[Rfam]
Background: Rfam assigns this 79-nucleotide RNA from Natronosporangium hydrolyticum to the family "SAH (S-adenosyl-L-homocysteine) riboswitch aptamer". The family's consensus secondary structure is taken from published work.

Nucleotides: 079
Base pairs, nucleotide, nucleotide: 002049004047005046006045007044008043021036022035023034024033025032026031
Number, partner (000 for none) and nucleotide at each position: 001000u002049g003000a004047g005046u006045c007044g008043a009000g010000a011000g012000g013000c014000g015000c016000u017000g018000c019000a020000a021036c022035g023034g024033g025032c026031g027000u028000g029000u030000g031026u032025g033024c034023c035022c036021g037000c038000c039000a040000c041000g042000c043008u044007c045006g046005a047004c048000c049002c050000c051000u052000g053000g054000a055000c056000u057000g058000c059000a060000c061000c062000a063000a064000g065000g066000g067000c068000g069000c070000c071000u072000c073000a074000u075000u076000u077000u078000u079000u